Small nucleolar RNA snoR53Y: an 86-nucleotide sequence from Quercus lobata. The family is grouped with related families in Rfam's "snoR53 clan". On this family, see Brown et al., RNA 2001: "Multiple snoRNA gene clusters from Arabidopsis". The match comes from Rfam's covariance-model search (59 bits). By type it is a C/D-box small nucleolar RNA. The source organism's lineage runs through Eukaryota, Spermatophyta, fabids, Fagaceae and Quercus. Gene Ontology terms of the family: nucleolus and RNA processing.

[Rfam]
Nucleotides: 086
Base pairs, nucleotide, nucleotide: 002084003083004082005081006080007079
Number, partner (000 for none) and nucleotide at each position: 001000u002084u003083u004082c005081c006080c007079u008000a009000u010000u011000a012000u013000g014000c015000u016000u017000c018000a019000g020000u021000a022000u023000g024000a025000a026000a027000c028000c029000a030000u031000g032000c033000u034000a035000a036000u037000g038000c039000u040000g041000a042000u043000g044000a045000g046000u047000c048000u049000g050000u051000g052000a053000u054000u055000g056000a057000u058000c059000c060000u061000u062000u063000u064000u065000u066000c067000a068000u069000c070000c071000a072000u073000u074000u075000g076000c077000u078000g079007a080006g081005g082004g083003a084002a085000c086000g